[Rfam]
RNA: permuted transfer-messenger RNA
RNA sequence: GGGCAUAAACGCGCUCGUAAUAAGCGGAUCGGACCCGGGGGCGGUACCCGGCGGCUCCACCAAUCAUCCCGUCGUUGGGGGGACUUUGGGGCCGAAACAGGAUCGACGAACGUGUAAAGGGGUAGCUUUGUCCCGGUGAGGUACCACCGUAAUCGGUCCGUUAAGCAUAAUUGCCAACGACAAUCGUGCUCCGGUCGCUCUCGCAGCCUAA
Numbered sequence: 001g002g003g004c005a006u007a008a009a010c011g012c013g014c015u016c017g018u019a020a021u022a023a024g025c026g027g028a029u030c031g032g033a034c035c036c037g038g039g040g041g042c043g044g045u046a047c048c049c050g051g052c053g054g055c056u057c058c059a060c061c062a063a064u065c066a067u068c069c070c071g072u073c074g075u076u077g078g079g080g081g082g083a084c085u086u087u088g089g090g091g092c093c094g095a096a097a098c099a100g101g102a103u104c105g106a107c108g109a110a111c112g113u114g115u116a117a118a119g120g121g122g123u124a125g126c127u128u129u130g131u132c133c134c135g136g137u138g139a140g141g142u143a144c145c146a147c148c149g150u151a152a153u154c155g156g157u158c159c160g161u162u163a164a165g166c167a168u169a170a171u172u173g174c175c176a177a178c179g180a181c182a183a184u185c186g187u188g189c190u191c192c193g194g195u196c197g198c199u200c201u202c203g204c205a206g207c208c209u210a211a
Stems, first nucleotide, its partner, number of pairs: 001133005013123004025112002029109003035051005052094007134149004